[Rfam]
RNA sequence: AUAUUUACCUCGACUGGGUCAAUUGGCUAUCAAUAAAGUCCAUGGCCUAGGUUGGUAACCUCCAUUACACUUUGGAGGGGCGUCUGCCAAAGGUCGGUCCAGGUGGCCGAGCCUAUGUCAUAAUUUGUGGUAGCGGGGGCCUGCAUUUGUGCCGCCCCUA
Numbered sequence: 001a002u003a004u005u006u007a008c009c010u011c012g013a014c015u016g017g018g019u020c021a022a023u024u025g026g027c028u029a030u031c032a033a034u035a036a037a038g039u040c041c042a043u044g045g046c047c048u049a050g051g052u053u054g055g056u057a058a059c060c061u062c063c064a065u066u067a068c069a070c071u072u073u074g075g076a077g078g079g080g081c082g083u084c085u086g087c088c089a090a091a092g093g094u095c096g097g098u099c100c101a102g103g104u105g106g107c108c109g110a111g112c113c114u115a116u117g118u119c120a121u122a123a124u125u126u127g128u129g130g131u132a133g134c135g136g137g138g139g140c141c142u143g144c145a146u147u148u149g150u151g152c153c154g155c156c157c158c159u160a
Stems, first nucleotide, its partner, number of pairs: 012119003016048006023042001025040003050088002053086001055083002059079003062075002091114003094110003098106002135159005143152003
This 160-nucleotide sequence from Anisodus acutangulus belongs to the Rfam family "U1 spliceosomal RNA". The family's consensus secondary structure is taken from published work. Rfam classes the family as a spliceosomal small nuclear RNA. It scores 104 bits against the family's covariance model. The family is grouped with related families in Rfam's "U1 clan". U1 is a small nuclear RNA (snRNA) component of the spliceosome (involved in pre-mRNA splicing). Its 5' end forms complementary base pairs with the 5' splice junction, thus defining the 5' donor site of an intron. There are significant differences in sequence and secondary structure between metazoan and yeast U1 snRNAs, the latter being much longer (568 nucleotides as compared to 164 nucleotides in human). Nevertheless, secondary structure predictions suggest that all U1 snRNAs share a 'common core' consisting of helices I, II, the proximal region of III, and IV. This family does not contain the larger yeast sequences. The organism belongs to Anisodus, within Eukaryota.